Shown here is a 91-nucleotide RNA sequence from Dorcoceras hygrometricum, a member of the family "NoRC associated RNA, pRNA".
It scores 34 bits against the family's covariance model.
A reference for the family is Mayer et al. (2008), "The structure of NoRC-associated RNA is crucial for targeting the chromatin remodelling complex NoRC to the nucleolus", EMBO Rep.
By type it is a non-coding RNA gene.
Lineage of the source: Eukaryota > Viridiplantae > Tracheophyta > Trichosporeae > Dorcoceras.
Its family is annotated with chromatin remodeling in the Gene Ontology.
RNA sequence: CCACGGGGAUCGGUUUGGGGACGGGGAUCCCCAUCCCCAUAUCCGCGGGGAUCGGUCCGGGGACGGGGAUCCACAUCCCCGCCUCUAAUAU
Numbered sequence: 001c002c003a004c005g006g007g008g009a010u011c012g013g014u015u016u017g018g019g020g021a022c023g024g025g026g027a028u029c030c031c032c033a034u035c036c037c038c039a040u041a042u043c044c045g046c047g048g049g050g051a052u053c054g055g056u057c058c059g060g061g062g063a064c065g066g067g068g069a070u071c072c073a074c075a076u077c078c079c080c081g082c083c084u085c086u087a088a089u090a091u
Stems, first nucleotide, its partner, number of pairs: 006086001008085002012082001018080003027070003030066002034062004